[Rfam]
RNA sequence: GUUUGCUGAGAAUCUUCCCCAGGCUUUGGCCAUAGUCCCAGGUGAGAUUCAGUACCUAGAGCAUCCAGGGGCCUCAGUUCACCAACUGAGGGAAGGUGAAAACCACUCGCUACCACUACC
Numbered sequence: 001g002u003u004u005g006c007u008g009a010g011a012a013u014c015u016u017c018c019c020c021a022g023g024c025u026u027u028g029g030c031c032a033u034a035g036u037c038c039c040a041g042g043u044g045a046g047a048u049u050c051a052g053u054a055c056c057u058a059g060a061g062c063a064u065c066c067a068g069g070g071g072c073c074u075c076a077g078u079u080c081a082c083c084a085a086c087u088g089a090g091g092g093a094a095g096g097u098g099a100a101a102a103c104c105a106c107u108c109g110c111u112a113c114c115a116c117u118a119c120c
Stems, first nucleotide, its partner, number of pairs: 005053006013045002016042001022037004068113001070111003074105001079099005
Shown here is a 120-nucleotide sequence from Fukomys damarensis, a member of the family "Small nucleolar RNA ACA64". The family's RNA type in Rfam is H/ACA-box small nucleolar RNA. Gene Ontology terms of the family: RNA processing and nucleolus. Pairs were carried over by alignment from the consensus structure, which was predicted with WAR.